Rfam assigns this 102-nucleotide RNA sequence from Amphiprion percula to the family "Vault RNA". The literature on the family includes a 2009 paper in Mol Biol Evol by Stadler et al., "Evolution of Vault RNAs". The organism belongs to Amphiprion, within Eukaryota.
RNA sequence: GCACUGGUUUAGCUCAGUGGUUCCUUCUCUGCACAAAUCUAGUUGAUUUCGUGGUUCGAAUCCCUCCUCGGGACCACACCACGGACGCUGUCCAGUGUGUUU
Numbered sequence: 001g002c003a004c005u006g007g008u009u010u011a012g013c014u015c016a017g018u019g020g021u022u023c024c025u026u027c028u029c030u031g032c033a034c035a036a037a038u039c040u041a042g043u044u045g046a047u048u049u050c051g052u053g054g055u056u057c058g059a060a061u062c063c064c065u066c067c068u069c070g071g072g073a074c075c076a077c078a079c080c081a082c083g084g085a086c087g088c089u090g091u092c093c094a095g096u097g098u099g100u101u102u
Base pairs, nucleotide, nucleotide: 002097003096004095005094006093007092012086014084015083017082018081019080020079025060026059027058
Dot-bracket structure: .((((((....(.((.((((....(((..............................)))..................)))))).).....)))))).....

It scores 51 bits against the family's covariance model.